[Rfam]
RNA: L31-Gammaproteobacteria ribosomal protein leader
RNA sequence: CGUGUGGUGUCUGGCUCUGGAUCAGAUAGCGACACGGCCUACAGAUAGAGGU
Numbered sequence: 001c002g003u004g005u006g007g008u009g010u011c012u013g014g015c016u017c018u019g020g021a022u023c024a025g026a027u028a029g030c031g032a033c034a035c036g037g038c039c040u041a042c043a044g045a046u047a048g049a050g051g052u
Stems, first nucleotide, its partner, number of pairs: 001036005007030002011025004016020001